[Rfam]
RNA sequence: UUUUGUGGAUGAUGAGAAAUUUGAAUUUAUACAGUUAUCCCUGUCUUAGUAAAACAAUGCCGAGAUUUCUAAACUCUUGACACUUAA
Numbered sequence: 001u002u003u004u005g006u007g008g009a010u011g012a013u014g015a016g017a018a019a020u021u022u023g024a025a026u027u028u029a030u031a032c033a034g035u036u037a038u039c040c041c042u043g044u045c046u047u048a049g050u051a052a053a054a055c056a057a058u059g060c061c062g063a064g065a066u067u068u069c070u071a072a073a074c075u076c077u078u079g080a081c082a083c084u085u086a087a
Base pairs, nucleotide, nucleotide: 001087002086005083006082007081
Rfam assigns this 87-nucleotide RNA from Kingdonia uniflora to the family "Small nucleolar RNA R38". Rfam 15.1 lists 2,295 matches to the family in 1,305 species. A reference for the family is Bachellerie et al. (1995), "Antisense snoRNAs: a family of nucleolar RNAs with long complementarities to rRNA", Trends Biochem Sci. Lineage of the source: Eukaryota > Viridiplantae > Streptophytina > Spermatophyta > Kingdonia. It is annotated as a C/D-box small nucleolar RNA. About the family: snoR38 is a C/D box small nucleolar RNA conserved across yeast, human, Arabidopsis and rice. It is encoded in the intron of elongation factor-1 gamma in both pombe and cerevisiae. snoR38 guides the methylation of 2'-O-ribose sites in 28S rRNA. Rfam links the family to the GO terms nucleolus and RNA processing.